[Rfam]
RNA sequence: UGGAACCUUGUUUAUACUGCUGGGCCUUUCAUAAGACCCAGUGCGCAAUUUUUGUAGACCCUUGCUGGAGCAAGGGUG
Numbered sequence: 001u002g003g004a005a006c007c008u009u010g011u012u013u014a015u016a017c018u019g020c021u022g023g024g025c026c027u028u029u030c031a032u033a034a035g036a037c038c039c040a041g042u043g044c045g046c047a048a049u050u051u052u053u054g055u056a057g058a059c060c061c062u063u064g065c066u067g068g069a070g071c072a073a074g075g076g077u078g
Base pairs, nucleotide, nucleotide: 022039023038024037026035027034028033058077059076060075061074062073063072064071065070
Shown here is a 78-nucleotide RNA from Teladorsagia circumcincta, a member of the family "SmY spliceosomal RNA". The organism belongs to Teladorsagia, within Eukaryota.